Shown here is a 106-nucleotide RNA from Cottoperca gobio, a member of the family "Vault RNA". NCBI's taxonomy places the organism under Eukaryota, Opisthokonta, Bilateria, Osteoglossocephalai, Cottoperca. About the family: This family of RNAs are found as part of the enigmatic vault ribonucleoprotein complex. The complex consists of a major vault protein (MVP), two minor vault proteins (VPARP and TEP1), and several small untranslated RNA molecules. It has been suggested that the vault complex is involved in drug resistance. It scores 65 bits against the family's covariance model.
RNA sequence: GCACUGGUUUAGCUCAGUGGUUACUUCGAACAUCAAUUCUCUCUGGAGAAUUCGCUGCUCUCUAUCCCUCCCUGGGAUCGAACCCCGGGCGCUGUCCAGUGUUUUU
Numbered sequence: 001g002c003a004c005u006g007g008u009u010u011a012g013c014u015c016a017g018u019g020g021u022u023a024c025u026u027c028g029a030a031c032a033u034c035a036a037u038u039c040u041c042u043c044u045g046g047a048g049a050a051u052u053c054g055c056u057g058c059u060c061u062c063u064a065u066c067c068c069u070c071c072c073u074g075g076g077a078u079c080g081a082a083c084c085c086c087g088g089g090c091g092c093u094g095u096c097c098a099g100u101g102u103u104u105u106u
Base pairs, nucleotide, nucleotide: 002101003100004099005098006097007096012090013089014088015087017086019084020083025082026081027080028079029078